[Rfam]
RNA sequence: AAACGUGAUGACUUUCAUAGAAUCUCAUUUGGCUGAUGAUUGCUGUUGAGAUACAGAAAUCUGACUUCC
Number, nucleotide and partner (000 for none) at each position: 001a000002a000003a000004c000005g000006u000007g000008a000009u000010g000011a000012c000013u000014u000015u000016c000017a000018u000019a000020g000021a000022a000023u051024c050025u049026c048027a047028u000029u000030u045031g044032g043033c042034u000035g000036a000037u000038g000039a000040u000041u000042g033043c032044u031045g030046u000047u027048g026049a025050g024051a023052u000053a000054c000055a000056g000057a000058a000059a000060u000061c000062u000063g000064a000065c000066u000067u000068c000069c000
This 69-nucleotide RNA from Nannospalax galili belongs to the Rfam family "Small nucleolar RNA SNORD30".
Its family is annotated with RNA processing and nucleolus in the Gene Ontology.
On this family, see Tycowski et al., Proc Natl Acad Sci U S A 1996: "A small nucleolar RNA requirement for site-specific ribose methylation of rRNA in Xenopus".
Lineage of the source: Eukaryota > Eumetazoa > Mammalia > Euarchontoglires > Nannospalax.
Pairs were carried over by alignment from the consensus structure.
It is annotated as a C/D-box small nucleolar RNA.